RNA: SAM (S-adenosyl methionine) riboswitch aptamer
Organism: Mycobacteriaceae bacterium
RNA sequence: GGUCAUGAGUGCCAGCGUCAAGCCCCGGCUUGCUGGCCGGCAACCCUCCCUCCGCGGCGGGGUGCUCCGGGUGACGACCCGACCGACGUCCGGCACGGGCGCGGUAAGCGCGGACC
Numbered sequence: 001g002g003u004c005a006u007g008a009g010u011g012c013c014a015g016c017g018u019c020a021a022g023c024c025c026c027g028g029c030u031u032g033c034u035g036g037c038c039g040g041c042a043a044c045c046c047u048c049c050c051u052c053c054g055c056g057g058c059g060g061g062g063u064g065c066u067c068c069g070g071g072u073g074a075c076g077a078c079c080c081g082a083c084c085g086a087c088g089u090c091c092g093g094c095a096c097g098g099g100c101g102c103g104g105u106a107a108g109c110g111c112g113g114a115c116c
Stems, first nucleotide, its partner, number of pairs: 001079004009038001011037006021030002039066003044062003048057002082105004087101005